RNA sequence: AGCUUUGCGCAGAGGCGAUAACGUGACCAAUGAGGGAAACCGAGGUGCGUUUAUUGCUGGUUGAAAACUUCUACCAAUUACCCGCGAUGGUCUCUGAAAUAUGGGUAUCAUUCGCAAUUUUUGGACCCUCUUGAGGAG
Numbered sequence: 001a002g003c004u005u006u007g008c009g010c011a012g013a014g015g016c017g018a019u020a021a022c023g024u025g026a027c028c029a030a031u032g033a034g035g036g037a038a039a040c041c042g043a044g045g046u047g048c049g050u051u052u053a054u055u056g057c058u059g060g061u062u063g064a065a066a067a068c069u070u071c072u073a074c075c076a077a078u079u080a081c082c083c084g085c086g087a088u089g090g091u092c093u094c095u096g097a098a099a100u101a102u103g104g105g106u107a108u109c110a111u112u113c114g115c116a117a118u119u120u121u122u123g124g125a126c127c128c129u130c131u132u133g134a135g136g137a138g
Base pairs, nucleotide, nucleotide: 020051021050022049023048024047026046027045028044034041035040084115085114086113087111088110089109090108091107093105094104095103096102128138129137130136131135
U4 spliceosomal RNA: a 138-nucleotide RNA sequence from Panagrolaimus superbus. U4 small nuclear RNA (U4 snRNA) is a component of the major U2-dependent spliceosome. Taxonomically the source falls in Panagrolaimus (Eukaryota, Metazoa, Protostomia, Tylenchina). It is annotated as a spliceosomal small nuclear RNA.